[Rfam]
RNA sequence: GACUAUGAAGAGUUGCUCAAUGUGUGAGAUGUAGGUAGCUCCAAGGGUCUGUUUUUCAGGUUUGAACCUACUUGGGGUCCUACAUUGUAAUGAGUUAUAUGGGCUUUUUUAACU
Numbered sequence: 001g002a003c004u005a006u007g008a009a010g011a012g013u014u015g016c017u018c019a020a021u022g023u024g025u026g027a028g029a030u031g032u033a034g035g036u037a038g039c040u041c042c043a044a045g046g047g048u049c050u051g052u053u054u055u056u057c058a059g060g061u062u063u064g065a066a067c068c069u070a071c072u073u074g075g076g077g078u079c080c081u082a083c084a085u086u087g088u089a090a091u092g093a094g095u096u097a098u099a100u101g102g103g104c105u106u107u108u109u110u111a112a113c114u
Stems, first nucleotide, its partner, number of pairs: 001114001047061005